A member of the RNA family "mir-219 microRNA precursor family" from Denticeps clupeoides, 81 nucleotides long. Pairs were carried over by alignment from the consensus structure, which was predicted with RNAalifold. Gene Ontology terms of the family: RISC complex and miRNA-mediated post-transcriptional gene silencing. NCBI's taxonomy places the organism under Eukaryota, Teleostei, Clupei, Denticipitidae, Denticeps. It scores 68 bits against the family's covariance model. A reference for the family is Lim et al. (2003), "Vertebrate microRNA genes", Science.
RNA sequence: UCAGAGGCUGAUUGUCCAAACGCAAUUCUUGUGUCCAACUGAUUGAAGUGCAGGAGUUGUGGAUGGACAUCAGUCCCCUGG
Numbered sequence: 001u002c003a004g005a006g007g008c009u010g011a012u013u014g015u016c017c018a019a020a021c022g023c024a025a026u027u028c029u030u031g032u033g034u035c036c037a038a039c040u041g042a043u044u045g046a047a048g049u050g051c052a053g054g055a056g057u058u059g060u061g062g063a064u065g066g067a068c069a070u071c072a073g074u075c076c077c078c079u080g081g
Base pairs, nucleotide, nucleotide: 002080003079004078006076007075009072010071011070012069014068015067016066017065018064021061022060023059024058025057026056027055028054029053030052031051
Rfam 15.1 lists 1,318 matches to the family in 774 species.